The family of this 49-nucleotide sequence is "ssNA-helicase RNA". The family's consensus secondary structure is taken from published work.

[Rfam]
RNA sequence: UGCCAUAAGGGUCAGUAUUACCCUUAUGGCAAAUAUGUAGCAAGUAGCA
Numbered sequence: 001u002g003c004c005a006u007a008a009g010g011g012u013c014a015g016u017a018u019u020a021c022c023c024u025u026a027u028g029g030c031a032a033a034u035a036u037g038u039a040g041c042a043a044g045u046a047g048c049a
Base pairs, nucleotide, nucleotide: 001031002030003029004028005027006026007025008024009023010022011021